A member of the RNA family "c-di-GMP-I riboswitch aptamer" from Sediminibacillus albus, 86 nucleotides long.
The match comes from Rfam's covariance-model search (78 bits).
[Rfam]
RNA sequence: UCAGUAAAAAGGCAAACUUAUUGAAAAAUAAGGACGCAAAGCAACAGAUCUAAAGCCCUGUGUGCAAGGAUGGCUGUGCUGCCUGA
Number, nucleotide and partner (000 for none) at each position: 001u000002c000003a000004g000005u000006a000007a000008a000009a000010a000011g000012g037013c036014a000015a000016a000017c032018u031019u030020a029021u028022u027023g000024a000025a000026a000027a022028a021029u020030a019031a018032g017033g000034a000035c000036g013037c012038a000039a000040a080041g079042c078043a077044a000045c076046a075047g074048a071049u070050c069051u000052a000053a000054a000055g065056c064057c000058c062059u000060g000061u000062g058063u000064g056065c055066a000067a000068g000069g050070a049071u048072g000073g000074c047075u046076g045077u043078g042079c041080u040081g000082c000083c000084u000085g000086a000